Shown here is a 169-nucleotide RNA from Dorea sp. CAG:105, a member of the family "Clostridiales-1 RNA". The family's RNA type in Rfam is small RNA. The family's consensus secondary structure is taken from published work.
RNA sequence: UGAUACCAGAGCCAAAAAGUCUGAAGCCACAGGAGCUUGCUCAUAAGUGGCUGUAAGACUUUGGGGCUCGCCCCAAUAUGAGCAUAAAAGUGGGAUUUUAAUCCCGCGAUAUGCGAAUAGUGGGUAGGAUUACGGGAGUGCGUUAGCACAUAGUAAUCCGUUGGUAUCA
Numbered sequence: 001u002g003a004u005a006c007c008a009g010a011g012c013c014a015a016a017a018a019g020u021c022u023g024a025a026g027c028c029a030c031a032g033g034a035g036c037u038u039g040c041u042c043a044u045a046a047g048u049g050g051c052u053g054u055a056a057g058a059c060u061u062u063g064g065g066g067c068u069c070g071c072c073c074c075a076a077u078a079u080g081a082g083c084a085u086a087a088a089a090g091u092g093g094g095a096u097u098u099u100a101a102u103c104c105c106g107c108g109a110u111a112u113g114c115g116a117a118u119a120g121u122g123g124g125u126a127g128g129a130u131u132a133c134g135g136g137a138g139u140g141c142g143u144u145a146g147c148a149c150a151u152a153g154u155a156a157u158c159c160g161u162u163g164g165u166a167u168c169a
Stems, first nucleotide, its partner, number of pairs: 001169007010068004016062007024054001026051005031044001033042003072124004077119003082114004090107007127159007138149004

A search with the family's covariance model found it, with a score of 135 bits.